[Rfam]
Rfam assigns this 102-nucleotide RNA from Virgibacillus indicus to the family "Bacillaceae-1 RNA". Pairs were carried over by alignment from the consensus structure, which is taken from published work. Rfam classes the family as a small RNA. The match comes from Rfam's covariance-model search (66 bits). The source organism's lineage runs through Bacteria, Bacillati, Bacilli, Caryophanales and Virgibacillus.
RNA sequence: AGUGAAGGAUGUUCUACUAAGAACGCCACGUCCUGGGACUGCGCACGGUUCGUCCCACCGAAAACCUUUGUGGCAACGUAGAACUGACCUACAUCCUGUAGG
Numbered sequence: 001a002g003u004g005a006a007g008g009a010u011g012u013u014c015u016a017c018u019a020a021g022a023a024c025g026c027c028a029c030g031u032c033c034u035g036g037g038a039c040u041g042c043g044c045a046c047g048g049u050u051c052g053u054c055c056c057a058c059c060g061a062a063a064a065c066c067u068u069u070g071u072g073g074c075a076a077c078g079u080a081g082a083a084c085u086g087a088c089c090u091a092c093a094u095c096c097u098g099u100a101g102g
Stems, first nucleotide, its partner, number of pairs: 011084007025074005088102005